[Rfam]
RNA sequence: GGGCAUUCAGAACACUUGCAAUCUGGGCUACACACUGAGAACCAGUUUCUCCUCCAUCGCCCAGGGGAAAGUCCCCGGACCCGUGGCAGAAAGUGUCCUGGUUGAAGCCAGCGUCGGCCUGCGCUGCACCGCGAUGAGCUGAGACGUUCACCGCGAACUGAGCUCGGUGGUCGCAGGUCGACUUUGUCAGCGUUAAUAGUAAUGCAAGUAAGCAGCUACUUAACAGAACGGGGCUCAUUCUCGGAAUGCU
Numbered sequence: 001g002g003g004c005a006u007u008c009a010g011a012a013c014a015c016u017u018g019c020a021a022u023c024u025g026g027g028c029u030a031c032a033c034a035c036u037g038a039g040a041a042c043c044a045g046u047u048u049c050u051c052c053u054c055c056a057u058c059g060c061c062c063a064g065g066g067g068a069a070a071g072u073c074c075c076c077g078g079a080c081c082c083g084u085g086g087c088a089g090a091a092a093g094u095g096u097c098c099u100g101g102u103u104g105a106a107g108c109c110a111g112c113g114u115c116g117g118c119c120u121g122c123g124c125u126g127c128a129c130c131g132c133g134a135u136g137a138g139c140u141g142a143g144a145c146g147u148u149c150a151c152c153g154c155g156a157a158c159u160g161a162g163c164u165c166g167g168u169g170g171u172c173g174c175a176g177g178u179c180g181a182c183u184u185u186g187u188c189a190g191c192g193u194u195a196a197u198a199g200u201a202a203u204g205c206a207a208g209u210a211a212g213c214a215g216c217u218a219c220u221u222a223a224c225a226g227a228a229c230g231g232g233g234c235u236c237a238u239u240c241u242c243g244g245a246a247u248g249c250u
Stems, first nucleotide, its partner, number of pairs: 002250007010242002014209006022065007037051005070235002073233004085097004098111005114181003118177006124170004136165004146158004211220002
A member of the RNA family "RNase MRP" from Stegastes partitus, 250 nucleotides long. Rfam's curators write: RNase MRP is an enzymatically active ribonucleoprotein with two distinct roles in eukaryotes. In mitochondria it plays a direct role in the initiation of mitochondrial DNA replication. In the nucleus it is involved in precursor rRNA processing, where it cleaves the internal transcribed spacer 1 between 18S and 5.8S rRNAs. Despite distinct functions, RNase MRP has been shown to be evolutionarily related to RNase P. Like eukaryotic RNase P, RNase MRP is not catalytically active without associated protein subunits. Pairs were carried over by alignment from the consensus structure, which is taken from published work. Clan: RNaseP clan. Taxonomically the source falls in Stegastes (Eukaryota, Eumetazoa, Osteoglossocephalai, Euteleosteomorpha). By type it is a ribozyme.